RNA: chrB-b RNA
Organism: Candidatus Gallionella acididurans
RNA sequence: CGGGGAUAGCAGCAUCCCCGCCUCAAGACAACACAUCGUCCAAGGUCUGC
Numbered sequence: 001c002g003g004g005g006a007u008a009g010c011a012g013c014a015u016c017c018c019c020g021c022c023u024c025a026a027g028a029c030a031a032c033a034c035a036u037c038g039u040c041c042a043a044g045g046u047c048u049g050c
Base pairs, nucleotide, nucleotide: 001020002019003018004017005016006015009050010049011048012047027040028039029038031036